The family of this 72-nucleotide sequence from Caenorhabditis briggsae is "tRNA".
The family's consensus secondary structure is taken from published work.
Transfer RNA (tRNA) molecules are approximately 80 nucleotides in length. Their secondary structure includes four short double-helical elements and three loops (D, anti-codon, and T loops). Further hydrogen bonds mediate the characteristic L-shaped molecular structure. tRNAs have two regions of fundamental functional importance: the anti-codon, which is responsible for specific mRNA codon recognition, and the 3' end, to which the tRNAs corresponding amino acid is attached (by aminoacyl-tRNA synthetases). tRNAs cope with the degeneracy of the genetic code in two manners: having more than one tRNA (with a specific anti-codon) for a particular amino acid; and 'wobble' base-pairing, i.e. permitting non-standard base-pairing at the 3rd anti-codon position.
Rfam classes the family as a transfer RNA.

RNA sequence: GGCCGAAUGGUCUAGUGGUAUGAUUCUCGCUUUGGGUGCGAGAGGUCCCGGGUUCAAUCCCCGGUUCGGCCC
Numbered sequence: 001g002g003c004c005g006a007a008u009g010g011u012c013u014a015g016u017g018g019u020a021u022g023a024u025u026c027u028c029g030c031u032u033u034g035g036g037u038g039c040g041a042g043a044g045g046u047c048c049c050g051g052g053u054u055c056a057a058u059c060c061c062c063g064g065u066u067c068g069g070c071c072c
Base pairs, nucleotide, nucleotide: 001071002070003069004068005067006066007065010024011023012022026042027041028040029039030038048064049063050062051061052060